[Rfam]
Shown here is an 88-nucleotide sequence from Helianthus annuus, a member of the family "Small nucleolar RNA R16". The family has 18 seed sequences and 884 matches in Rfam 15.1. For this family Rfam cites "Purified box C/D snoRNPs are able to reproduce site-specific 2'-O-methylation of target RNA in vitro" (Galardi et al., Mol Cell Biol, 2002). The family's RNA type in Rfam is C/D-box small nucleolar RNA. The source organism's lineage runs through Eukaryota, Streptophyta, Magnoliopsida, Mesangiospermae and Helianthus. Its family is annotated with nucleolus and RNA processing in the Gene Ontology. The match comes from Rfam's covariance-model search (60 bits).
Nucleotides: 088
Base pairs, nucleotide, nucleotide: 004085005084006083007082
Number, partner (000 for none) and nucleotide at each position: 001000a002000u003000u004085g005084g006083c007082a008000g009000a010000u011000g012000a013000c014000g015000a016000u017000a018000a019000c020000u021000c022000a023000g024000u025000u026000u027000u028000a029000u030000g031000c032000u033000u034000a035000a036000c037000a038000c039000u040000c041000u042000g043000a044000u045000u046000u047000a048000a049000c050000c051000g052000u053000g054000g055000u056000g057000a058000u059000u060000a061000u062000a063000a064000a065000c066000u067000c068000c069000g070000c071000u072000u073000a074000u075000u076000a077000u078000c079000u080000g081000a082007u083006g084005c085004c086000u087000a088000u